[Rfam]
RNA sequence: UCACCAUCGGGCUCGGAUUCGCUUGGUGCAGGUCGGGAACCAAUUCGGCUGACACAGCCUCGUGACUUUUAAACCUUUAUUGGUUUGUGAGCAGGGAUUGGAUCCCGCCUUGCAUCAACUGAAUCGGAUCCUCGAGGUGUA
Numbered sequence: 001u002c003a004c005c006a007u008c009g010g011g012c013u014c015g016g017a018u019u020c021g022c023u024u025g026g027u028g029c030a031g032g033u034c035g036g037g038a039a040c041c042a043a044u045u046c047g048g049c050u051g052a053c054a055c056a057g058c059c060u061c062g063u064g065a066c067u068u069u070u071a072a073a074c075c076u077u078u079a080u081u082g083g084u085u086u087g088u089g090a091g092c093a094g095g096g097a098u099u100g101g102a103u104c105c106c107g108c109c110u111u112g113c114a115u116c117a118a119c120u121g122a123a124u125c126g127g128a129u130c131c132u133c134g135a136g137g138u139g140u141a
Base pairs, nucleotide, nucleotide: 013128014127017124018123019122020121023118024117025116026115027114028113029112030111031110032109034107035106036105037104038103040101041100042099043098044097045096046095